[Rfam]
RNA sequence: UGUAUAGUUUUCUAGGGUUCCGCAGUUUGUGACUGGCUGGUCCGAGAGAAGACGCACAUUUAAUUGUGUACACGGAAGGAUAAAAGCCUGGGAGAU
Numbered sequence: 001u002g003u004a005u006a007g008u009u010u011u012c013u014a015g016g017g018u019u020c021c022g023c024a025g026u027u028u029g030u031g032a033c034u035g036g037c038u039g040g041u042c043c044g045a046g047a048g049a050a051g052a053c054g055c056a057c058a059u060u061u062a063a064u065u066g067u068g069u070a071c072a073c074g075g076a077a078g079g080a081u082a083a084a085a086g087c088c089u090g091g092g093a094g095a096u
Stems, first nucleotide, its partner, number of pairs: 007053006015043002020040002022037001023035005054069005071091001073094001077089003